[Rfam]
Nucleotides: 105
Base pairs, nucleotide, nucleotide: 023095024094025093026092027091028090029089030088035086037084038083039082040080041079042078043077048076049075050074051073
Number, partner (000 for none) and nucleotide at each position: 001000c002000u003000c004000a005000c006000u007000a008000u009000g010000u011000g012000c013000a014000a015000a016000u017000a018000a019000c020000a021000c022000a023095c024094a025093c026092g027091u028090a029089u030088c031000g032000a033000c034000a035086c036000c037084u038083a039082c040080g041079c042078c043077g044000g045000g046000g047000u048076g049075c050074c051073u052000u053000g054000c055000u056000g057000g058000u059000u060000u061000g062000a063000a064000a065000g066000a067000g068000c069000u070000g071000a072000u073051g074050g075049g076048u077043c078042g079041g080040u081000u082039g083038u084037a085000c086035g087000g088030g089029a090028u091027a092026c093025g094024u095023g096000g097000a098000g099000g100000c101000u102000u103000a104000a105000c
A member of the RNA family "t44 RNA" from Candidatus Erwinia dacicola, 105 nucleotides long. For this family Rfam cites "Transcriptome analysis of Escherichia coli using high-density oligonucleotide probe arrays" (Tjaden et al., Nucleic Acids Res, 2002). By type it is a small RNA. The family's consensus secondary structure was predicted with LocARNA. The source organism's lineage runs through Bacteria, Pseudomonadati, Pseudomonadota, Erwiniaceae and Erwinia.